[Rfam]
RNA: TPP riboswitch aptamer (THI element)
Organism: Thalassotalea agarivorans
RNA sequence: UGCAAAACCAAGGGGUGCAUCGUAGAUGCUGAGAUAAAACCCUUAUUACCUGAUUCGGAUAAUGCCGACGUAGGGAUGGUUAAGUGAUAAAUA
Numbered sequence: 001u002g003c004a005a006a007a008c009c010a011a012g013g014g015g016u017g018c019a020u021c022g023u024a025g026a027u028g029c030u031g032a033g034a035u036a037a038a039a040c041c042c043u044u045a046u047u048a049c050c051u052g053a054u055u056c057g058g059a060u061a062a063u064g065c066c067g068a069c070g071u072a073g074g075g076a077u078g079g080u081u082a083a084g085u086g087a088u089a090a091a092u093a
Base pairs, nucleotide, nucleotide: 006081007080008079009078010077011043012042013041014040016037017029018028019027020026021025049074050073051072052071055068056067057066058065